Background: This 77-nucleotide RNA from Hyphomicrobium nitrativorans belongs to the Rfam family "Makes More Granules Regulator RNA (mmgR)". Rfam classes the family as a small RNA. Its Rfam clan is "suhB sRNA clan". Taxonomically the source falls in Hyphomicrobium nitrativorans (Bacteria, Alphaproteobacteria, Hyphomicrobiales, Hyphomicrobium).
RNA sequence: GAUCACUGCCCUCCUUGGGCGUUUCCUCCCUAGACUUGGGCCGUCCAUACCCUGGACGGCCCUUUUUUCUUGCUCGG
Dot-bracket structure: .......((((.....)))).................(((((((((.......)))))))))...............